[Rfam]
RNA sequence: AUAGACACCAAGGGGUGCUGGGCGCAAAUGUUGCCUGGCUGAGAUCCAGCGAUGGGAACCCUUAUACCUGAUCCGGAUAAUACCGGCGUAGGAAUGGGCUGCUGAAGCAAU
Numbered sequence: 001a002u003a004g005a006c007a008c009c010a011a012g013g014g015g016u017g018c019u020g021g022g023c024g025c026a027a028a029u030g031u032u033g034c035c036u037g038g039c040u041g042a043g044a045u046c047c048a049g050c051g052a053u054g055g056g057a058a059c060c061c062u063u064a065u066a067c068c069u070g071a072u073c074c075g076g077a078u079a080a081u082a083c084c085g086g087c088g089u090a091g092g093a094a095u096g097g098g099c100u101g102c103u104g105a106a107g108c109a110a111u
Stems, first nucleotide, its partner, number of pairs: 008097003011062004016056001017039008046055003067092004073086004
Dot-bracket structure: .......(((((((.(((((((((.......))))))))......(((....))))..))))....((((..((((......))))..))))..)))..............
Description:
The family of this 111-nucleotide RNA from Neptunicella marina is "TPP riboswitch aptamer (THI element)". Rfam describes the family as follows. Vitamin B(1) in its active form thiamin pyrophosphate (TPP) is an essential coenzyme that is synthesised by coupling of pyrimidine and thiazole moieties in bacteria. The previously detected thiamin-regulatory element, thi box was extended, resulting in a new, highly conserved RNA secondary structure, the THI element, which is widely distributed in eubacteria and also occurs in some archaea. Analysis of operon structures identified a large number of new candidate thiamin-regulated genes, mostly transporters, in various prokaryotic organisms. The THI element is a riboswitch that directly binds to TPP to regulate gene expression through a variety of mechanisms in archaea, bacteria and eukaryotes. through a variety of mechanisms in archaea, bacteria and eukaryotes.